[Rfam]
RNA sequence: CGGGGCUUGGAAUCACGAUGUUGUGGCCCCCGCUAGCGUCUAAGCGAGCGAUCACGGGGAUCUCCACACGCUCGCCGGUAUAGCCGCGCACCUCUAAAGUAGGCCGCCGAGGGAUGCCCGCAUCGCUCUCGGUGCUCCGAAUUUUAUGCGAGGGACGCGCUACACGCCGUGGAGGGGUAGGCUGAGUUGGGAACGGCCUAGAAAGUGUAGAACGCCA
Numbered sequence: 001c002g003g004g005g006c007u008u009g010g011a012a013u014c015a016c017g018a019u020g021u022u023g024u025g026g027c028c029c030c031c032g033c034u035a036g037c038g039u040c041u042a043a044g045c046g047a048g049c050g051a052u053c054a055c056g057g058g059g060a061u062c063u064c065c066a067c068a069c070g071c072u073c074g075c076c077g078g079u080a081u082a083g084c085c086g087c088g089c090a091c092c093u094c095u096a097a098a099g100u101a102g103g104c105c106g107c108c109g110a111g112g113g114a115u116g117c118c119c120g121c122a123u124c125g126c127u128c129u130c131g132g133u134g135c136u137c138c139g140a141a142u143u144u145u146a147u148g149c150g151a152g153g154g155a156c157g158c159g160c161u162a163c164a165c166g167c168c169g170u171g172g173a174g175g176g177g178u179a180g181g182c183u184g185a186g187u188u189g190g191g192a193a194c195g196g197c198c199u200a201g202a203a204a205g206u207g208u209a210g211a212a213c214g215c216c217a
Stems, first nucleotide, its partner, number of pairs: 001032005007026001044075006062174005085159004091153004160210006178200007

PAGEV RNA: a 217-nucleotide RNA.
Rfam's curators put it in the seed alignment.